[Rfam]
RNA sequence: UUCUCUUCACGGACUUGUGCCCAGCGAUCCUCUGCCACCUCCGUGUGGUCAGGGUCGAUUGCUGCGGCAGUUCGGUUAAAAUGGAGCCAUCUUAUUUUCUAUGAUGUCAAUUUCCUACCGACAGGUCCAAGAGAAACCGAACUCUGGGGAGCUUCGUUCGCCGCAAGGUUUGAGCGUUGUGAGCCGGAUGAUUUAGGAGAAGUCAUAUUCCAAUCCGUUCGCCGAGACCGUCGGUUUAUGAGGCUGGGGGAAACCAUGACCGUUACUACAAUU
Numbered sequence: 001u002u003c004u005c006u007u008c009a010c011g012g013a014c015u016u017g018u019g020c021c022c023a024g025c026g027a028u029c030c031u032c033u034g035c036c037a038c039c040u041c042c043g044u045g046u047g048g049u050c051a052g053g054g055u056c057g058a059u060u061g062c063u064g065c066g067g068c069a070g071u072u073c074g075g076u077u078a079a080a081a082u083g084g085a086g087c088c089a090u091c092u093u094a095u096u097u098u099c100u101a102u103g104a105u106g107u108c109a110a111u112u113u114c115c116u117a118c119c120g121a122c123a124g125g126u127c128c129a130a131g132a133g134a135a136a137c138c139g140a141a142c143u144c145u146g147g148g149g150a151g152c153u154u155c156g157u158u159c160g161c162c163g164c165a166a167g168g169u170u171u172g173a174g175c176g177u178u179g180u181g182a183g184c185c186g187g188a189u190g191a192u193u194u195a196g197g198a199g200a201a202g203u204c205a206u207a208u209u210c211c212a213a214u215c216c217g218u219u220c221g222c223c224g225a226g227a228c229c230g231u232c233g234g235u236u237u238a239u240g241a242g243g244c245u246g247g248g249g250g251a252a253a254c255c256a257u258g259a260c261c262g263u264u265a266c267u268a269c270a271a272u273u
Stems, first nucleotide, its partner, number of pairs: 011128008019068003022064003026060004030054005035048004076120001079116001082109003086105001088103001139194003142190001143188005155176006161168002199266001201264001202260005215249002218246001221244003226236004
The family of this 273-nucleotide RNA from Bombardia bombarda is "A. fumigatus sRNA Afu_309". It scores 150 bits against the family's covariance model. By type it is a small RNA. A reference for the family is Jochl et al. (2008), "Small ncRNA transcriptome analysis from Aspergillus fumigatus suggests a novel mechanism for regulation of protein synthesis", Nucleic Acids Res.